[Rfam]
RNA: Guanidine-I riboswitch aptamer
Organism: Stenomitos frigidus
RNA sequence: UCUAUUCGCUUCUAGGGUUCCGGUCUUGCGCAAGUAAGGUGUCUGGUCCAAGAGAGGCAGCCGCUUUGAAAACUGCGAUUGUGCAGGCAAAGCAGUCACACGGCGGGAAAAAAGCCCGGGAGAG
Numbered sequence: 001u002c003u004a005u006u007c008g009c010u011u012c013u014a015g016g017g018u019u020c021c022g023g024u025c026u027u028g029c030g031c032a033a034g035u036a037a038g039g040u041g042u043c044u045g046g047u048c049c050a051a052g053a054g055a056g057g058c059a060g061c062c063g064c065u066u067u068g069a070a071a072a073c074u075g076c077g078a079u080u081g082u083g084c085a086g087g088c089a090a091a092g093c094a095g096u097c098a099c100a101c102g103g104c105g106g107g108a109a110a111a112a113a114g115c116c117c118g119g120g121a122g123a124g
Base pairs, nucleotide, nucleotide: 008058009057010056011055012054015049016048020046021045022043023040024039025038026037027036028035060097061095063093064092065091066090067089099119101122105117106116107115